This 83-nucleotide sequence from Saimiri boliviensis belongs to the Rfam family "mir-629 microRNA precursor family". Gene Ontology terms of the family: RISC complex and miRNA-mediated post-transcriptional gene silencing. NCBI's taxonomy places the organism under Eukaryota, Euarchontoglires, Platyrrhini, Cebidae, Saimiri boliviensis. The family's consensus secondary structure was predicted with RNAalifold. The family has 2 seed sequences and 20 matches in Rfam 15.1.

[Rfam]
RNA sequence: CAGGGGAGGGGCUGGGUUUCAGUUGGGAGAGCUUUUACCUUGAACCAGGAGGUUCUCCCAGUGGUAACCCAGCCCCUCCCCUC
Numbered sequence: 001c002a003g004g005g006g007a008g009g010g011g012c013u014g015g016g017u018u019u020c021a022g023u024u025g026g027g028a029g030a031g032c033u034u035u036u037a038c039c040u041u042g043a044a045c046c047a048g049g050a051g052g053u054u055c056u057c058c059c060a061g062u063g064g065u066a067a068c069c070c071a072g073c074c075c076c077u078c079c080c081c082u083c
Stems, first nucleotide, its partner, number of pairs: 002082017020064001022062015